[Rfam]
RNA sequence: CCCGCAGCAGGACGGAAAGACCCUUUGCACCUUUACUGUAAGCUGAUAUUGGUACUUGAUUUUCAAUGCGUAGGAUAGGUGGGAGACUUUGAUCCCGGGCUUCAGGGCCUGGAGGAGUCGUUGGUGAAAUACCACCCUUUGUUGAUUAGGUAUCUAACCACAUGCCAUUAUCUGGCUGUGGGACAGUGUUAGCGGGUCAGUUUUACUGGGGCGGUAUCCUCCCAAAGAGUAACGGAGGAUUGCGAAGGUCCCCUCGGCCCGGUUGGCAAUCGGGCGAAAGAGCAUAUUGGUAUAAGGGGGCUUUACUGUGAGACCUACAAGUCGAGCAGUUGCGAAAGCAGGCCAAAGUGAUCCGGUGGUUGAAUAUGGAAUUGCCAUCGCUAAAAGGACAAAAGGUACGCUAGGGAUAACAGGCUGAUCCCACCCAAGCGUUCAUAGCGACGGUGGGGUUUGGCACCUCGAUGUCGGCUCAUCACAUCCUGGGGCUGGAGAAGGUCCCAAGGGUUCGGCUGUUCGCCGAUUAAAGUGGUACGCGAGCUGGGUUCAGAACGUCGUGAGACAGUUCGGUCCUCUAUCCGCUGUGGGCGUA
Numbered sequence: 001c002c003c004g005c006a007g008c009a010g011g012a013c014g015g016a017a018a019g020a021c022c023c024u025u026u027g028c029a030c031c032u033u034u035a036c037u038g039u040a041a042g043c044u045g046a047u048a049u050u051g052g053u054a055c056u057u058g059a060u061u062u063u064c065a066a067u068g069c070g071u072a073g074g075a076u077a078g079g080u081g082g083g084a085g086a087c088u089u090u091g092a093u094c095c096c097g098g099g100c101u102u103c104a105g106g107g108c109c110u111g112g113a114g115g116a117g118u119c120g121u122u123g124g125u126g127a128a129a130u131a132c133c134a135c136c137c138u139u140u141g142u143u144g145a146u147u148a149g150g151u152a153u154c155u156a157a158c159c160a161c162a163u164g165c166c167a168u169u170a171u172c173u174g175g176c177u178g179u180g181g182g183a184c185a186g187u188g189u190u191a192g193c194g195g196g197u198c199a200g201u202u203u204u205a206c207u208g209g210g211g212c213g214g215u216a217u218c219c220u221c222c223c224a225a226a227g228a229g230u231a232a233c234g235g236a237g238g239a240u241u242g243c244g245a246a247g248g249u250c251c252c253c254u255c256g257g258c259c260c261g262g263u264u265g266g267c268a269a270u271c272g273g274g275c276g277a278a279a280g281a282g283c284a285u286a287u288u289g290g291u292a293u294a295a296g297g298g299g300g301c302u303u304u305a306c307u308g309u310g311a312g313a314c315c316u317a318c319a320a321g322u323c324g325a326g327c328a329g330u331u332g333c334g335a336a337a338g339c340a341g342g343c344c345a346a347a348g349u350g351a352u353c354c355g356g357u358g359g360u361u362g363a364a365u366a367u368g369g370a371a372u373u374g375c376c377a378u379c380g381c382u383a384a385a386a387g388g389a390c391a392a393a394a395g396g397u398a399c400g401c402u403a404g405g406g407a408u409a410a411c412a413g414g415c416u417g418a419u420c421c422c423a424c425c426c427a428a429g430c431g432u433u434c435a436u437a438g439c440g441a442c443g444g445u446g447g448g449g450u451u452u453g454g455c456a457c458c459u460c461g462a463u464g465u466c467g468g469c470u471c472a473u474c475a476c477a478u479c480c481u482g483g484g485g486c487u488g489g490a491g492a493a494g495g496u497c498c499c500a501a502g503g504g505u506u507c508g509g510c511u512g513u514u515c516g517c518c519g520a521u522u523a524a525a526g527u528g529g530u531a532c533g534c535g536a537g538c539u540g541g542g543u544u545c546a547g548a549a550c551g552u553c554g555u556g557a558g559a560c561a562g563u564u565c566g567g568u569c570c571u572c573u574a575u576c577c578g579c580u581g582u583g584g585g586c587g588u589a
Stems, first nucleotide, its partner, number of pairs: 001585008010577003014572001015570001022405003027401002029397005035201004042193007051154011064141003068137001078136005085119003095112007158181003164176004204216004217239006240386001242343002248301006254281002257275006282291002306329004312323003331340003354380007362373002414455003418452001419449007429439002466541001467539004471533001472530005479504002482499006506520005547565004551560003